[Rfam]
RNA sequence: UCGGCUGGUGUUGUGUGGAAGACUAGUGAUUUUGUUGUUCUGUUUCGAUUAACAAGGAAUCACUAUUCAUCCCACAAAACGGCCUA
Numbered sequence: 001u002c003g004g005c006u007g008g009u010g011u012u013g014u015g016u017g018g019a020a021g022a023c024u025a026g027u028g029a030u031u032u033u034g035u036u037g038u039u040c041u042g043u044u045u046c047g048a049u050u051a052a053c054a055a056g057g058a059a060u061c062a063c064u065a066u067u068c069a070u071c072c073c074a075c076a077a078a079a080c081g082g083c084c085u086a
Base pairs, nucleotide, nucleotide: 003084004083005082006081008080009079011077012076013075014074015073017071018070021067022066026063027062028061029060030059031058032057035055036054037053038052039051
RNA: mir-7 microRNA precursor family